Rfam assigns this 71-nucleotide RNA from Populus alba to the family "Small nucleolar RNA snoR60".
[Rfam]
RNA sequence: UGGCAUAUGAUGAGGUACUCGGAUUCCCCUACAAGACAAUAUGGGUGAUGUAAAACCGAGCUUCCGAUGCU
Numbered sequence: 001u002g003g004c005a006u007a008u009g010a011u012g013a014g015g016u017a018c019u020c021g022g023a024u025u026c027c028c029c030u031a032c033a034a035g036a037c038a039a040u041a042u043g044g045g046u047g048a049u050g051u052a053a054a055a056c057c058g059a060g061c062u063u064c065c066g067a068u069g070c071u
Stems, first nucleotide, its partner, number of pairs: 002071004
Overview
A reference for the family is Barneche et al. (2000), "Fibrillarin genes encode both a conserved nucleolar protein and a novel small nucleolar RNA involved in ribosomal RNA methylation in Arabidopsis thaliana", J Biol Chem. It scores 77 bits against the family's covariance model. Lineage of the source: Eukaryota > Streptophytina > Tracheophyta > eudicotyledons > Populus. Pairs were carried over by alignment from the consensus structure, which was predicted with PFOLD.